Rfam assigns this 104-nucleotide sequence from Eragrostis curvula to the family "Small nucleolar RNA snoR26".
For this family Rfam cites "Multiple snoRNA gene clusters from Arabidopsis" (Brown et al., RNA, 2001).
[Rfam]
RNA sequence: GGAGCAUCUGUGAUGUAUUUACCUCUAUAUUCAUCCUUGCACUUUGAGGGAAGGUUAACCCUUUUCGGUGAAGAAAACAUCGGGGUUAGUAUACUGAGGUGCUC
Numbered sequence: 001g002g003a004g005c006a007u008c009u010g011u012g013a014u015g016u017a018u019u020u021a022c023c024u025c026u027a028u029a030u031u032c033a034u035c036c037u038u039g040c041a042c043u044u045u046g047a048g049g050g051a052a053g054g055u056u057a058a059c060c061c062u063u064u065u066c067g068g069u070g071a072a073g074a075a076a077a078c079a080u081c082g083g084g085g086u087u088a089g090u091a092u093a094c095u096g097a098g099g100u101g102c103u104c
Base pairs, nucleotide, nucleotide: 002104003103004102005101006100007099008098

By type it is a C/D-box small nucleolar RNA. Its family is annotated with nucleolus and RNA processing in the Gene Ontology.